The record is a 219-nucleotide RNA from Pseudomonas sp. 21C1, which matches "PhrS" in Rfam. A search with the family's covariance model found it, with a score of 160 bits. Gene Ontology term of the family: quorum sensing. The base pairs follow the family's consensus structure, which was predicted with CMfinder.
[Rfam]
RNA sequence: CUACAGCCAUCCCUAGCGGACUCAACAGCAGGAGGCACCCCAUGUUUAUCGAUACUGUCGUACUGGCCGGCAUCGGCACAGUCGGGCUGAUGGUCGCGUUCUUCGCGGGUGUUGGUUACUUCAUCUGGAAAGACUCGCACAAGCGCAACAAGCUGCGCUGAGUCCGCAGGCAACAGGCACGCAAGGCAAUUUGGGCGACUUCGGUCGCCUUUUUUUGUG
Number, nucleotide and partner (000 for none) at each position: 001c000002u000003a000004c108005a000006g106007c105008c000009a000010u000011c000012c000013c000014u000015a000016g000017c000018g000019g000020a000021c000022u000023c000024a000025a000026c000027a000028g000029c000030a000031g000032g000033a000034g000035g000036c000037a000038c000039c000040c000041c000042a000043u000044g000045u000046u000047u000048a000049u000050c000051g000052a000053u000054a000055c000056u000057g067058u066059c065060g000061u000062a000063c000064u000065g059066g058067c057068c000069g000070g000071c000072a000073u000074c000075g000076g000077c000078a000079c000080a000081g000082u000083c000084g095085g094086g000087c092088u000089g000090a000091u000092g087093g000094u085095c084096g000097c000098g000099u000100u000101c000102u000103u000104c000105g007106c006107g000108g004109g000110u000111g000112u000113u000114g000115g000116u000117u000118a000119c000120u000121u000122c000123a000124u000125c000126u000127g000128g000129a000130a000131a000132g000133a000134c000135u000136c000137g000138c000139a000140c000141a000142a000143g000144c000145g000146c000147a000148a000149c000150a000151a000152g000153c000154u000155g000156c000157g000158c000159u000160g000161a000162g000163u000164c000165c000166g000167c000168a000169g000170g000171c000172a000173a000174c000175a000176g000177g187178c186179a000180c185181g000182c000183a000184a000185g180186g178187c177188a000189a000190u000191u000192u000193g210194g209195g208196c207197g206198a205199c204200u000201u000202c000203g000204g199205u198206c197207g196208c195209c194210u193211u000212u000213u000214u000215u000216u000217g000218u000219g000